This 150-nucleotide RNA from Trichonephila clavata belongs to the Rfam family "Wolbachia sRNA 46".
[Rfam]
RNA sequence: UGUCAUCCCAGUGCCCAGACACUGGGAUCCAGGAAUUUUAAUUGUAAGUAAGCAUACUGAGUUGAUAAGUAUAAAAGUAGCUAGAAAAUAAACAUUUUUGAUGAGAUUAUAUGGAAAACUGGAUCCCAGUGUCUGAGCACUGGGAUGACA
Number, nucleotide and partner (000 for none) at each position: 001u150002g149003u148004c147005a146006u145007c144008c143009c142010a141011g140012u139013g138014c137015c000016c135017a134018g133019a132020c131021a130022c129023u128024g127025g126026g125027a124028u123029c122030c121031a120032g119033g000034a000035a000036u000037u000038u000039u000040a000041a000042u000043u000044g000045u000046a000047a000048g000049u000050a000051a000052g000053c000054a000055u000056a000057c000058u000059g000060a000061g000062u000063u000064g000065a000066u000067a000068a000069g000070u000071a000072u000073a000074a000075a000076a000077g000078u000079a000080g000081c000082u000083a000084g000085a000086a000087a000088a000089u000090a000091a000092a000093c000094a000095u000096u000097u000098u000099u000100g000101a000102u000103g000104a000105g000106a000107u000108u000109a000110u000111a000112u000113g000114g000115a000116a000117a000118a000119c032120u031121g030122g029123a028124u027125c026126c025127c024128a023129g022130u021131g020132u019133c018134u017135g016136a000137g014138c013139a012140c011141u010142g009143g008144g007145a006146u005147g004148a003149c002150a001

Pairs were carried over by alignment from the consensus structure. The source organism's lineage runs through Eukaryota, Protostomia, Araneae, Araneomorphae and Trichonephila. The literature on the family includes a 2014 paper in Proc Natl Acad Sci U S A by Mayoral et al., "Wolbachia small noncoding RNAs and their role in cross-kingdom communications".